The record is an 84-nucleotide sequence from Homo sapiens, which matches "mir-4716 microRNA precursor family" in Rfam. The family has 2 seed sequences and 57 matches in Rfam 15.1. Its family is annotated with RISC complex and miRNA-mediated post-transcriptional gene silencing in the Gene Ontology. The base pairs follow the family's consensus structure, which was predicted with RNAalifold.

[Rfam]
RNA sequence: CACACUUUGUCUCCAUGUUUCCUUCCCCCUUCCUCCUGUAUACAUGUAUACAGAAGGGGGAAGGAAACAUGGAGACAAAGUAUG
Numbered sequence: 001c002a003c004a005c006u007u008u009g010u011c012u013c014c015a016u017g018u019u020u021c022c023u024u025c026c027c028c029c030u031u032c033c034u035c036c037u038g039u040a041u042a043c044a045u046g047u048a049u050a051c052a053g054a055a056g057g058g059g060g061a062a063g064g065a066a067a068c069a070u071g072g073a074g075a076c077a078a079a080g081u082a083u084g
Stems, first nucleotide, its partner, number of pairs: 001084002004081029035046001037044002